[Rfam]
RNA sequence: CCUCUCAUUCUUGGCGCGUUCGGCUUCUUGAAUAAGUCAAACGCGAAUGUUGGGAGGAAUAGAAAGCUGAACGUUUCUUCGGUUACGAUGUCCUCCAAUGACGCGUUACUAUCCUCUGAGCGUUGAAGAUUU
Numbered sequence: 001c002c003u004c005u006c007a008u009u010c011u012u013g014g015c016g017c018g019u020u021c022g023g024c025u026u027c028u029u030g031a032a033u034a035a036g037u038c039a040a041a042c043g044c045g046a047a048u049g050u051u052g053g054g055a056g057g058a059a060u061a062g063a064a065a066g067c068u069g070a071a072c073g074u075u076u077c078u079u080c081g082g083u084u085a086c087g088a089u090g091u092c093c094u095c096c097a098a099u100g101a102c103g104c105g106u107u108a109c110u111a112u113c114c115u116c117u118g119a120g121c122g123u124u125g126a127a128g129a130u131u132u
Stems, first nucleotide, its partner, number of pairs: 001057005015045006022038004070124006085106003091100001
Rfam assigns this 132-nucleotide sequence from Notodromas monacha to the family "Small nucleolar RNA SNORA57". On this family, see Vitali et al., Nucleic Acids Res 2003: "Identification of 13 novel human modification guide RNAs". U99 belongs to the H/ACA class of snoRNAs which are thought to guide the sites of modification of uridines to pseudouridines, the target for this family is unknown. Gene Ontology terms of the family: nucleolus and RNA processing. NCBI's taxonomy places the organism under Eukaryota, Metazoa, Ecdysozoa, Cypridocopina, Notodromas. The family's consensus secondary structure was predicted with PFOLD. The match comes from Rfam's covariance-model search (43 bits). Rfam classes the family as an H/ACA-box small nucleolar RNA.